RNA: Archaeal small subunit ribosomal RNA, nucleotides 501 to 859
RNA sequence: AGUCUAAAGGGUCCGUAGCCGGCUUUGCAAGUCCCCUGGGAAAUCCAGCGGCUUAACCGUUGGGCUUUCAUGGGAUACUACAUUGCUUGGGACUGGGAGAGGUAGGAGGUACUCGGGGGGUAGGGGUGAAAUCCUGUAAUCCUCCGGGGACCACCGGUGGCGAAGGCGUCCUACCAGAACAGGUCCGACGGUGAGGGACGAAAGCUAGGGGCACGAACCGGAUUAGAUACCCGGGUAGUCCUAGCCGUAAACGAUGCCCGCUAGGUGUCACGACGGUCGUGAAUCGUCGUGGUGCCGUAGGGAAGCCGCGAAGCGGGCCACUUGGGAAGUACGGCCGCAAGGCUGAAACUUAAAGGAAU
Numbered sequence: 001a002g003u004c005u006a007a008a009g010g011g012u013c014c015g016u017a018g019c020c021g022g023c024u025u026u027g028c029a030a031g032u033c034c035c036c037u038g039g040g041a042a043a044u045c046c047a048g049c050g051g052c053u054u055a056a057c058c059g060u061u062g063g064g065c066u067u068u069c070a071u072g073g074g075a076u077a078c079u080a081c082a083u084u085g086c087u088u089g090g091g092a093c094u095g096g097g098a099g100a101g102g103u104a105g106g107a108g109g110u111a112c113u114c115g116g117g118g119g120g121u122a123g124g125g126g127u128g129a130a131a132u133c134c135u136g137u138a139a140u141c142c143u144c145c146g147g148g149g150a151c152c153a154c155c156g157g158u159g160g161c162g163a164a165g166g167c168g169u170c171c172u173a174c175c176a177g178a179a180c181a182g183g184u185c186c187g188a189c190g191g192u193g194a195g196g197g198a199c200g201a202a203a204g205c206u207a208g209g210g211g212c213a214c215g216a217a218c219c220g221g222a223u224u225a226g227a228u229a230c231c232c233g234g235g236u237a238g239u240c241c242u243a244g245c246c247g248u249a250a251a252c253g254a255u256g257c258c259c260g261c262u263a264g265g266u267g268u269c270a271c272g273a274c275g276g277u278c279g280u281g282a283a284u285c286g287u288c289g290u291g292g293u294g295c296c297g298u299a300g301g302g303a304a305g306c307c308g309c310g311a312a313g314c315g316g317g318c319c320a321c322u323u324g325g326g327a328a329g330u331a332c333g334g335c336c337g338c339a340a341g342g343c344u345g346a347a348a349c350u351u352a353a354a355g356g357a358a359u
Base pairs, nucleotide, nucleotide: 001322002321003320009319011199012198013197014196016193018192019191020190022086023085026082027081030079031078032075033074034073035072037070038069039068040067045063046062047061048060049059050058051057090186091185092184093182094181095180101175102174103173104172105171106170107169108152109151112148113147114146115145116144117143118142119141123134124133125132160167161166204245205244206243207242208241209240213239214238218234219233220232221231256318257317258316259315260314261313264296265295266294267293268292269291270290271289272288273287274286275285276284277283300307301306324351325350326349333344334343335342336341